[Rfam]
RNA sequence: UCACCGAAAAGGCAAAAUCCAGGGGACUGGAUGACGCAAAGCCACCUACCCGGACCGGGAAGAGGGGUUACCGAA
Numbered sequence: 001u002c003a004c005c006g007a008a009a010a011g012g013c014a015a016a017a018u019c020c021a022g023g024g025g026a027c028u029g030g031a032u033g034a035c036g037c038a039a040a041g042c043c044a045c046c047u048a049c050c051c052g053g054a055c056c057g058g059g060a061a062g063a064g065g066g067g068u069u070a071c072c073g074a075a
Stems, first nucleotide, its partner, number of pairs: 012037002017032006040069004045065003049059004
Shown here is a 75-nucleotide RNA sequence from Trichlorobacter lovleyi, a member of the family "c-di-GMP-I riboswitch aptamer". Its family is annotated with cyclic-di-GMP binding in the Gene Ontology. The base pairs follow the family's consensus structure, which is taken from published work. The literature on the family includes a 2007 paper in Nucleic Acids Res by Weinberg et al., "Identification of 22 candidate structured RNAs in bacteria using the CMfinder comparative genomics pipeline".